[Rfam]
RNA sequence: CUAAAGGUCCUUUUAAGGACCACCCACUUUCUCGUAAAAGCAAAA
Numbered sequence: 001c002u003a004a005a006g007g008u009c010c011u012u013u014u015a016a017g018g019a020c021c022a023c024c025c026a027c028u029u030u031c032u033c034g035u036a037a038a039a040g041c042a043a044a045a
Stems, first nucleotide, its partner, number of pairs: 006021006
The family of this 45-nucleotide RNA from Albula glossodonta is "Histone 3' UTR stem-loop". NCBI's taxonomy places the organism under Eukaryota, Bilateria, Craniata, Albuliformes, Albula.